The family of this 163-nucleotide RNA from Adlercreutzia caecimuris is "FMN riboswitch aptamer (RFN element)". Rfam's curators write: The RFN element is a highly conserved domain that is found frequently in the 5'-untranslated regions of prokaryotic mRNAs that encode for flavin mononucleotide (FMN) biosynthesis and transport proteins.
RNA sequence: AUUCUGUUUCAGGGCGAGGUGGAAAUCCUCACUGGCGGUAAGCACGGCGGCGCAUCCGAGCGCUUCCGGCAAGCCCGCGACCCUGCGAAGCCCAUGCGGCUUCCAGGCUGACCCGGUGAAAAUCCGGGGCCAACGGUUACAGUCCGGAUGGAAGAGGCAGAUG
Numbered sequence: 001a002u003u004c005u006g007u008u009u010c011a012g013g014g015c016g017a018g019g020u021g022g023a024a025a026u027c028c029u030c031a032c033u034g035g036c037g038g039u040a041a042g043c044a045c046g047g048c049g050g051c052g053c054a055u056c057c058g059a060g061c062g063c064u065u066c067c068g069g070c071a072a073g074c075c076c077g078c079g080a081c082c083c084u085g086c087g088a089a090g091c092c093c094a095u096g097c098g099g100c101u102u103c104c105a106g107g108c109u110g111a112c113c114c115g116g117u118g119a120a121a122a123u124c125c126g127g128g129g130c131c132a133a134c135g136g137u138u139a140c141a142g143u144c145c146g147g148a149u150g151g152a153a154g155a156g157g158c159a160g161a162u163g
Base pairs, nucleotide, nucleotide: 003161004160005159006158007157008156009155010154017029018028019027031143032142033132034131035078036077037076038075073130074129082107083106084105085104112128113127114126115125116124134146135145136144